The family of this 88-nucleotide sequence from Arabis alpina is "Small nucleolar RNA Z122".
It is annotated as a C/D-box small nucleolar RNA.
The source organism's lineage runs through Eukaryota, Magnoliopsida, Pentapetalae, Brassicales and Arabis.
The base pairs follow the family's consensus structure, which was predicted with PFOLD.
RNA sequence: UUUGGGAGAUGAUGACAAAAAUACGAUAUUGUCUAAGGCUAAUGCCACUGCAGAUAGAAAUGUAUUUGCACGUCAGUCUGAUCCCGUU
Number, nucleotide and partner (000 for none) at each position: 001u000002u000003u086004g085005g084006g083007a082008g000009a000010u000011g000012a000013u000014g000015a000016c000017a000018a000019a000020a000021a000022u000023a000024c000025g000026a000027u000028a000029u000030u000031g000032u000033c000034u000035a000036a000037g000038g000039c000040u000041a000042a000043u000044g000045c000046c000047a000048c000049u000050g000051c000052a000053g000054a000055u000056a000057g000058a000059a000060a000061u000062g000063u000064a000065u000066u000067u000068g000069c000070a000071c000072g000073u000074c000075a000076g000077u000078c000079u000080g000081a000082u007083c006084c005085c004086g003087u000088u000